Shown here is a 349-nucleotide RNA sequence from Mycoplasma sp. CAG:776, a member of the family "Bacterial RNase P class B".
Lineage of the source: Bacteria > Bacillati > Mollicutes > Mycoplasmatales > Mycoplasma.
Rfam describes the family as follows. Ribonuclease P (RNase P) is a ubiquitous endoribonuclease, found in archaea, bacteria and eukarya as well as chloroplasts and mitochondria.
Gene Ontology terms of the family: ribonuclease P activity, dimeric ribonuclease P complex and tRNA processing.
The family's RNA type in Rfam is ribozyme.
[Rfam]
RNA sequence: AUAUUCGGACAAAUGCUGCAUAAAUUUUUAAUAUGUAGAGGAAAGUCCAUGCUCACACAGACCUGUGAUGGCUGUAGUGUUCGUGCUUAGGGAAAAAAUAACCUAAGGUAGCUUAAAGCUAACGGCGAGAGAAACUUCUAAAAGCUAAGCUCAUGAAGGAAUAUCUUGUAAAGUGCCAUAGUAACGUACAAACUGGAAACAGUGGAAAUGGAACGCGGUAAACCCCACGAGUGAGAAAUCCAAAAUAUGGUAGGAGAGCUCUUACAAAAGAAAAAAAUGGCGUAAGGGUCUAGUUAUACUAGAAGAUAAAUAUUUGUCGCCCGAAAGGGAACAGAACAUGGCUUAUGAA
Dot-bracket structure: ...(((((((((((.((((((...........))))))....[[[.[[[[[(((((((((.((......)))))).....(((((((((((..........))))))((((((...))))).)((.((((....((((....((.....))...)))).....)))).....(((((..............((((....)))).............)))..))))))))))))))...(((...........)))...(((((((................)))))))((((((...))))))........))))))).(((....))).......]]]]]]]].))))
Numbered sequence: 001a002u003a004u005u006c007g008g009a010c011a012a013a014u015g016c017u018g019c020a021u022a023a024a025u026u027u028u029u030a031a032u033a034u035g036u037a038g039a040g041g042a043a044a045g046u047c048c049a050u051g052c053u054c055a056c057a058c059a060g061a062c063c064u065g066u067g068a069u070g071g072c073u074g075u076a077g078u079g080u081u082c083g084u085g086c087u088u089a090g091g092g093a094a095a096a097a098a099u100a101a102c103c104u105a106a107g108g109u110a111g112c113u114u115a116a117a118g119c120u121a122a123c124g125g126c127g128a129g130a131g132a133a134a135c136u137u138c139u140a141a142a143a144g145c146u147a148a149g150c151u152c153a154u155g156a157a158g159g160a161a162u163a164u165c166u167u168g169u170a171a172a173g174u175g176c177c178a179u180a181g182u183a184a185c186g187u188a189c190a191a192a193c194u195g196g197a198a199a200c201a202g203u204g205g206a207a208a209u210g211g212a213a214c215g216c217g218g219u220a221a222a223c224c225c226c227a228c229g230a231g232u233g234a235g236a237a238a239u240c241c242a243a244a245a246u247a248u249g250g251u252a253g254g255a256g257a258g259c260u261c262u263u264a265c266a267a268a269a270g271a272a273a274a275a276a277a278u279g280g281c282g283u284a285a286g287g288g289u290c291u292a293g294u295u296a297u298a299c300u301a302g303a304a305g306a307u308a309a310a311u312a313u314u315u316g317u318c319g320c321c322c323g324a325a326a327g328g329g330a331a332c333a334g335a336a337c338a339u340g341g342c343u344u345a346u347g348a349a
Stems, first nucleotide, its partner, number of pairs: 004349004008318007016038006043344003047341005052235005057075004062071002081230005086107006108123001109121005124225002127167004135158004143151002173223002175219003192203004239255003259288007289303006320329003